[Rfam]
Source information: The family of this 79-nucleotide RNA from Methylocella tundrae is "Makes More Granules Regulator RNA (mmgR)". The organism belongs to Methylocella, within Bacteria. It is annotated as a small RNA. The pairing is the family consensus, mapped onto this sequence.
RNA sequence: CGCCGAUGCCCUCCUUGGGCGUUUCCUCCCUAGACUUGGGCCGCUUGUGGUAACGCAAGCGGCCUCUUUAUUUUUGGCC
Numbered sequence: 001c002g003c004c005g006a007u008g009c010c011c012u013c014c015u016u017g018g019g020c021g022u023u024u025c026c027u028c029c030c031u032a033g034a035c036u037u038g039g040g041c042c043g044c045u046u047g048u049g050g051u052a053a054c055g056c057a058a059g060c061g062g063c064c065u066c067u068u069u070a071u072u073u074u075u076g077g078c079c
Base pairs, nucleotide, nucleotide: 008020009019010018011017039064040063041062042061043060044059045058046057047056